[Rfam]
RNA sequence: AAAAAGACUUAGAACGGAAAGAGUAGCAGAUAAUGGAUCCGACAGAGAGAAACUGUCACCGGCUGAAAGCAGUUUUCGGUGAAAUGGCUGUGAAGUGCAUCCGGGAGUUGAUCUGGCGAGCGGGAGAGAUCCCAGGUAGCCGGAUACGGGAAUUACACACGUUACGUGUAUCAAGUGGAGGCUUAUACGGAUGAUCAGAUCUGGAGCCUUUAGAAGAGUGGAACCGCGGAUUGAAUUCGUCUCUUGA
Numbered sequence: 001a002a003a004a005a006g007a008c009u010u011a012g013a014a015c016g017g018a019a020a021g022a023g024u025a026g027c028a029g030a031u032a033a034u035g036g037a038u039c040c041g042a043c044a045g046a047g048a049g050a051a052a053c054u055g056u057c058a059c060c061g062g063c064u065g066a067a068a069g070c071a072g073u074u075u076u077c078g079g080u081g082a083a084a085u086g087g088c089u090g091u092g093a094a095g096u097g098c099a100u101c102c103g104g105g106a107g108u109u110g111a112u113c114u115g116g117c118g119a120g121c122g123g124g125a126g127a128g129a130u131c132c133c134a135g136g137u138a139g140c141c142g143g144a145u146a147c148g149g150g151a152a153u154u155a156c157a158c159a160c161g162u163u164a165c166g167u168g169u170a171u172c173a174a175g176u177g178g179a180g181g182c183u184u185a186u187a188c189g190g191a192u193g194a195u196c197a198g199a200u201c202u203g204g205a206g207c208c209u210u211u212a213g214a215a216g217a218g219u220g221g222a223a224c225c226g227c228g229g230a231u232u233g234a235a236u237u238c239g240u241c242u243c244u245u246g247a
Stems, first nucleotide, its partner, number of pairs: 007108002015103004026091004031086001039079003049076008111145007147161002178210007215244004226240005

The family of this 247-nucleotide RNA sequence from Dorea phocaeensis is "T-box leader". Taxonomically the source falls in Dorea (Bacteria, Bacillati, Clostridia, Lachnospiraceae). About the family: Uncharged tRNA acts as the effector for transcription antitermination of genes in the T-box leader family. A search with the family's covariance model found it, with a score of 106 bits. Rfam classes the family as a cis-regulatory leader.